[Rfam]
RNA sequence: CCGACAGGCCGUGACUGGCGCGCUGGGAUGGGACGGACCAUCGGGGAGCGGCCUGCGAGUGACCAAGUGCCGUGCGCCUGGGCCGAACCG
Numbered sequence: 001c002c003g004a005c006a007g008g009c010c011g012u013g014a015c016u017g018g019c020g021c022g023c024u025g026g027g028a029u030g031g032g033a034c035g036g037a038c039c040a041u042c043g044g045g046g047a048g049c050g051g052c053c054u055g056c057g058a059g060u061g062a063c064c065a066a067g068u069g070c071c072g073u074g075c076g077c078c079u080g081g082g083c084c085g086a087a088c089c090g
Stems, first nucleotide, its partner, number of pairs: 005055008015045002017078005028041004069083003
Dot-bracket structure: ....((((((((..(([[[[[......((((......))))..))..)))))))).............(((..]]]]]..))).......
This 90-nucleotide RNA sequence from Streptomyces griseorubiginosus belongs to the Rfam family "ZMP/ZTP riboswitch aptamer (pfl RNA motif)". On this family, see Tran et al., Cell Chem Biol 2020: "Parallel Discovery Strategies Provide a Basis for Riboswitch Ligand Design". The organism belongs to Streptomyces, within Bacteria.